Notes: The record is a 198-nucleotide RNA from Promicromonospora soli, which matches "c-di-AMP riboswitch aptamer (ydaO/yuaA leader)" in Rfam. Rfam links the family to the GO terms cyclic-di-AMP binding and regulation of gene expression.
RNA sequence: GUGAGCCGGACGCCGAAUCCUGUCACCGGUUCAUGACCAGACGUUCGAGACAGGAGCGGGGGACCCACUUCCCGGGCGACAGCAGGAUCGUCGUCCUAGGGGUGAAGCCGAGCGGUACCCCCCAAGUAGCCGUGCGGCCGGGUGUUUACUCCCACCCGAACCCGACAGCUGACCUCGCAGGCGGUACAGGAGACAUUA
Numbered sequence: 001g002u003g004a005g006c007c008g009g010a011c012g013c014c015g016a017a018u019c020c021u022g023u024c025a026c027c028g029g030u031u032c033a034u035g036a037c038c039a040g041a042c043g044u045u046c047g048a049g050a051c052a053g054g055a056g057c058g059g060g061g062g063a064c065c066c067a068c069u070u071c072c073c074g075g076g077c078g079a080c081a082g083c084a085g086g087a088u089c090g091u092c093g094u095c096c097u098a099g100g101g102g103u104g105a106a107g108c109c110g111a112g113c114g115g116u117a118c119c120c121c122c123c124a125a126g127u128a129g130c131c132g133u134g135c136g137g138c139c140g141g142g143u144g145u146u147u148a149c150u151c152c153c154a155c156c157c158g159a160a161c162c163c164g165a166c167a168g169c170u171g172a173c174c175u176c177g178c179a180g181g182c183g184g185u186a187c188a189g190g191a192g193a194c195a196u197u198a
Base pairs, nucleotide, nucleotide: 011183012182013181014180018055019054020053021052022051023050024049056178057177058176059175060174061173066099100163101162102161108137109136110135140157141156142155143154